The family of this 82-nucleotide sequence from Lymphocryptovirus macacinegamma4 is "mir-BART7 microRNA precursor family". NCBI's taxonomy places the organism under Viruses, Orthoherpesviridae, Gammaherpesvirinae, Lymphocryptovirus, Lymphocryptovirus macacinegamma4. The base pairs follow the family's consensus structure, which was predicted with RNAalifold. For this family Rfam cites "Epstein-Barr virus microRNAs are evolutionarily conserved and differentially expressed" (Cai et al., PLoS Pathog, 2006).
RNA sequence: CCCGUGUCUUGAUCCUGGGCAUGGGCUAUGAAACAGUUCUAACAAUUGGAUCAUAGCCAGUGUCCAGGGACGGUGCACCGGG
Numbered sequence: 001c002c003c004g005u006g007u008c009u010u011g012a013u014c015c016u017g018g019g020c021a022u023g024g025g026c027u028a029u030g031a032a033a034c035a036g037u038u039c040u041a042a043c044a045a046u047u048g049g050a051u052c053a054u055a056g057c058c059a060g061u062g063u064c065c066a067g068g069g070a071c072g073g074u075g076c077a078c079c080g081g082g
Stems, first nucleotide, its partner, number of pairs: 001081002004078004009073003013069008022059003026056006034048005